Rfam assigns this 89-nucleotide RNA from Alkalicoccus urumqiensis to the family "c-di-GMP-I riboswitch aptamer". The literature on the family includes a 2007 paper in Nucleic Acids Res by Weinberg et al., "Identification of 22 candidate structured RNAs in bacteria using the CMfinder comparative genomics pipeline". The organism belongs to Alkalicoccus, within Bacteria. Gene Ontology term of the family: cyclic-di-GMP binding.
RNA sequence: UAUAGUUAAUGGCAAACUUAUUGAAAAAUAAGGACGCAAAGCUAUAGGGACUAAAGAUCUUUCGAGAUCUAUGUCAGCCAGCUGCCUGU
Numbered sequence: 001u002a003u004a005g006u007u008a009a010u011g012g013c014a015a016a017c018u019u020a021u022u023g024a025a026a027a028a029u030a031a032g033g034a035c036g037c038a039a040a041g042c043u044a045u046a047g048g049g050a051c052u053a054a055a056g057a058u059c060u061u062u063c064g065a066g067a068u069c070u071a072u073g074u075c076a077g078c079c080a081g082c083u084g085c086c087u088g089u
Stems, first nucleotide, its partner, number of pairs: 012037002017032006040083004047079002049075003056069004